[Rfam]
RNA sequence: CUGGCUGCUGAUUGUCCGAAUGCAAUUCUUGUGGAAUUUUGUAAGGACCGAGGAUUGUGGUCGGACAUUAACAGCCGG
Numbered sequence: 001c002u003g004g005c006u007g008c009u010g011a012u013u014g015u016c017c018g019a020a021u022g023c024a025a026u027u028c029u030u031g032u033g034g035a036a037u038u039u040u041g042u043a044a045g046g047a048c049c050g051a052g053g054a055u056u057g058u059g060g061u062c063g064g065a066c067a068u069u070a071a072c073a074g075c076c077g078g
Stems, first nucleotide, its partner, number of pairs: 002077006009070004014066005021059011
Shown here is a 78-nucleotide sequence from Callorhinchus milii, a member of the family "mir-219 microRNA precursor family".
The literature on the family includes a 2003 paper in Science by Lim et al., "Vertebrate microRNA genes".
Rfam 15.1 lists 1,318 matches to the family in 774 species.
NCBI's taxonomy places the organism under Eukaryota, Bilateria, Chordata, Holocephali, Callorhinchus.
Its family is annotated with miRNA-mediated post-transcriptional gene silencing and RISC complex in the Gene Ontology.